[Rfam]
RNA sequence: GUGCACUUGAUACGAGCCGGGAUACCCACGCCUGCCUGUUUAUUCAGAUGGGUGUAUACCAUGAUAUCUGGGUUUCCACGAGUGCCACAUUAACUCAACCAUAAGCAUUUAAGCUCAGAGUGCAGAGAGACUCCCUGAGUUAUAACUUAUGGUACAGAU
Numbered sequence: 001g002u003g004c005a006c007u008u009g010a011u012a013c014g015a016g017c018c019g020g021g022a023u024a025c026c027c028a029c030g031c032c033u034g035c036c037u038g039u040u041u042a043u044u045c046a047g048a049u050g051g052g053u054g055u056a057u058a059c060c061a062u063g064a065u066a067u068c069u070g071g072g073u074u075u076c077c078a079c080g081a082g083u084g085c086c087a088c089a090u091u092a093a094c095u096c097a098a099c100c101a102u103a104a105g106c107a108u109u110u111a112a113g114c115u116c117a118g119a120g121u122g123c124a125g126a127g128a129g130a131c132u133c134c135c136u137g138a139g140u141u142a143u144a145a146c147u148u149a150u151g152g153u154a155c156a157g158a159u
Stems, first nucleotide, its partner, number of pairs: 003085006015074004020069005026063001028055007036047003100152001118133004134151001136149005
Shown here is a 159-nucleotide sequence from Xenopus laevis, a member of the family "Small Cajal body specific RNA 1". The family has 29 seed sequences and 715 matches in Rfam 15.1. The source organism's lineage runs through Eukaryota, Vertebrata, Batrachia, Pipidae and Xenopus. It scores 73 bits against the family's covariance model. The literature on the family includes a 2002 paper in EMBO J by Darzacq et al., "Cajal body-specific small nuclear RNAs: a novel class of 2'-O-methylation and pseudouridylation guide RNAs".